[Rfam]
RNA sequence: AAAUAGAUUUUAUUCAUGCCAGAGACAGCAGGGGCGAUCGCUUAAUAUCCUGCCGAGGUAAAACGCUACAAGACUAAACAAGUUUUUUUCCAAGUUUGCUUGGAAGAAGAGCGUGACCCUGGCAUUGUCGCUGGGGUCUAUUUUUUUGUCCCU
Numbered sequence: 001a002a003a004u005a006g007a008u009u010u011u012a013u014u015c016a017u018g019c020c021a022g023a024g025a026c027a028g029c030a031g032g033g034g035c036g037a038u039c040g041c042u043u044a045a046u047a048u049c050c051u052g053c054c055g056a057g058g059u060a061a062a063a064c065g066c067u068a069c070a071a072g073a074c075u076a077a078a079c080a081a082g083u084u085u086u087u088u089u090c091c092a093a094g095u096u097u098g099c100u101u102g103g104a105a106g107a108a109g110a111g112c113g114u115g116a117c118c119c120u121g122g123c124a125u126u127g128u129c130g131c132u133g134g135g136g137u138c139u140a141u142u143u144u145u146u147u148g149u150c151c152c153u
Base pairs, nucleotide, nucleotide: 028053029052030051031050032049033048034041035040115138116137117136118135119134120133121132122131123130
Notes
Rfam assigns this 153-nucleotide RNA from Picosynechococcus sp. PCC 7002 to the family "Ribosomal protein L10 leader". The base pairs follow the family's consensus structure, which was predicted with CMfinder. The source organism's lineage runs through Bacteria, Bacillati, Cyanophyceae, Geminocystaceae and Picosynechococcus. It is annotated as a cis-regulatory leader.